[Rfam]
RNA: ALIL pseudoknot
RNA sequence: GGCUUUUUUCGCCGCGGCGGAGCUCGACCGCAAGCUGAAGUGACCACCGCGGUGCUGGUCGACUAUAUCGACCAGCACCGCGACCAGUUCGGGGUCGAGCCGAUCUGCACCGUCCUGCGCAAGGCCGGGACGCCGAUCGCCCCG
Dot-bracket structure: ................((((.......))))..........................................................(((((......((.((.((.......................)).)).)))))))
Numbered sequence: 001g002g003c004u005u006u007u008u009u010c011g012c013c014g015c016g017g018c019g020g021a022g023c024u025c026g027a028c029c030g031c032a033a034g035c036u037g038a039a040g041u042g043a044c045c046a047c048c049g050c051g052g053u054g055c056u057g058g059u060c061g062a063c064u065a066u067a068u069c070g071a072c073c074a075g076c077a078c079c080g081c082g083a084c085c086a087g088u089u090c091g092g093g094g095u096c097g098a099g100c101c102g103a104u105c106u107g108c109a110c111c112g113u114c115c116u117g118c119g120c121a122a123g124g125c126c127g128g129g130a131c132g133c134c135g136a137u138c139g140c141c142c143c144g
Stems, first nucleotide, its partner, number of pairs: 017031004090144005101139002104136002107133002